The family of this 91-nucleotide sequence from Allochromatium vinosum is "Glycine riboswitch aptamer". The match comes from Rfam's covariance-model search (68 bits). Its family is annotated with glycine biosynthetic process in the Gene Ontology.
RNA sequence: UCAUGUCCCGUGGGAGAGACCGGCCGCCCGGCCGGCGCCGAAGGCGCAACACCGCCCGGAAUCGCUCAGGCAGAAGGACCGCGGGAAUAAC
Numbered sequence: 001u002c003a004u005g006u007c008c009c010g011u012g013g014g015a016g017a018g019a020c021c022g023g024c025c026g027c028c029c030g031g032c033c034g035g036c037g038c039c040g041a042a043g044g045c046g047c048a049a050c051a052c053c054g055c056c057c058g059g060a061a062u063c064g065c066u067c068a069g070g071c072a073g074a075a076g077g078a079c080c081g082c083g084g085g086a087a088u089a090a091c
Base pairs, nucleotide, nucleotide: 006086007085008084009083010082011081012080013079020035021034022033023032037071038070039069040067041066044065045064046063050058
Dot-bracket structure: .....((((((((......((((........)))).(((((..(((...(.......)....))))).))).......)))))))).....